[Rfam]
RNA sequence: CCGUGCUAGGUGGGGAAUUAGCGGUGCCCUGUACCCACAAUCCGCUACAGUGGGACUGAAUCCCUGUCCGAGGUGAAGGCAUCUUAAGGUCUGCCGUAAGAGCGUAGUGUUGACGUCCGGGUCCUGUGCAACGGGAACCCGUGAACCCUGUCAGGUCCGGAAGGAAGCAGCAGUAAGCGGUCAUUCUUGUGUGUCGCAGGGUCACCUGGACCGAGCUACAAACUUACGUAACGCUUAUGGAUGUCUCCAUCAACGAUAGGUGCACGG
Numbered sequence: 001c002c003g004u005g006c007u008a009g010g011u012g013g014g015g016a017a018u019u020a021g022c023g024g025u026g027c028c029c030u031g032u033a034c035c036c037a038c039a040a041u042c043c044g045c046u047a048c049a050g051u052g053g054g055a056c057u058g059a060a061u062c063c064c065u066g067u068c069c070g071a072g073g074u075g076a077a078g079g080c081a082u083c084u085u086a087a088g089g090u091c092u093g094c095c096g097u098a099a100g101a102g103c104g105u106a107g108u109g110u111u112g113a114c115g116u117c118c119g120g121g122u123c124c125u126g127u128g129c130a131a132c133g134g135g136a137a138c139c140c141g142u143g144a145a146c147c148c149u150g151u152c153a154g155g156u157c158c159g160g161a162a163g164g165a166a167g168c169a170g171c172a173g174u175a176a177g178c179g180g181u182c183a184u185u186c187u188u189g190u191g192u193g194u195c196g197c198a199g200g201g202u203c204a205c206c207u208g209g210a211c212c213g214a215g216c217u218a219c220a221a222a223c224u225u226a227c228g229u230a231a232c233g234c235u236u237a238u239g240g241a242u243g244u245c246u247c248c249a250u251c252a253a254c255g256a257u258a259g260g261u262g263c264a265c266g267g
Stems, first nucleotide, its partner, number of pairs: 001267006009057003012030004017025003034054005063260006072251004079244005085237004092230002095228006104219001106217003115211008123200006129191002132189005139180004148173004156165003

Bacterial large signal recognition particle RNA: a 267-nucleotide sequence from Halalkalibacillus sediminis. Its Rfam clan is "SRP clan". Taxonomically the source falls in Halalkalibacillus (Bacteria, Bacilli, Caryophanales, Bacillaceae). The family's consensus secondary structure is taken from published work. The signal recognition particle (SRP) is a universally conserved ribonucleoprotein involved in the co-translational targeting of proteins to membranes. A reference for the family is Rosenblad et al. (2003), "SRPDB: Signal Recognition Particle Database", Nucleic Acids Res.